Rfam assigns this 184-nucleotide RNA from Thermanaerosceptrum fracticalcis to the family "Lysine riboswitch aptamer". The match comes from Rfam's covariance-model search (94 bits).
RNA sequence: GAGUGAGGUAGGGGUCGCGAAUCGCCAAGAGUAAUCCAGGGAGUGUGGCAACGAGGAACUGGACCAAAGGGGCGUUCGCCGAAGUGUGGAAGACCGGCCAAGGUUUCACGCUGGGACUGCAUUGAAGAAGUGCAGGACUGUCAUCUGAUAUGAGCCCGUUAUCAGAUGGAGCACUAUCUCACCA
Numbered sequence: 001g002a003g004u005g006a007g008g009u010a011g012g013g014g015u016c017g018c019g020a021a022u023c024g025c026c027a028a029g030a031g032u033a034a035u036c037c038a039g040g041g042a043g044u045g046u047g048g049c050a051a052c053g054a055g056g057a058a059c060u061g062g063a064c065c066a067a068a069g070g071g072g073c074g075u076u077c078g079c080c081g082a083a084g085u086g087u088g089g090a091a092g093a094c095c096g097g098c099c100a101a102g103g104u105u106u107c108a109c110g111c112u113g114g115g116a117c118u119g120c121a122u123u124g125a126a127g128a129a130g131u132g133c134a135g136g137a138c139u140g141u142c143a144u145c146u147g148a149u150a151u152g153a154g155c156c157c158g159u160u161a162u163c164a165g166a167u168g169g170a171g172c173a174c175u176a177u178c179u180c181a182c183c184a
Stems, first nucleotide, its partner, number of pairs: 006179006017079006024073003035063005083112009094102001113139002117135007141169010